Small nucleolar RNA Z266: a 97-nucleotide sequence from Solanum tuberosum. On this family, see Chen et al., Nucleic Acids Res 2003: "The high diversity of snoRNAs in plants: identification and comparative study of 120 snoRNA genes from Oryza sativa". The match comes from Rfam's covariance-model search (60 bits). The family's consensus secondary structure was predicted with PFOLD. It is annotated as a C/D-box small nucleolar RNA.
[Rfam]
RNA sequence: UUAUGGCAAGAAUGAUUGGAAACAAUUAGAUGUGCGAGGGGUGAAUUCCUCUAUGAGCUGAAACAUCGAGGCAUAUUGAUAUUCUGACUUGCCUUUA
Dot-bracket structure: (.(.((((((.............................................................................)))))).).)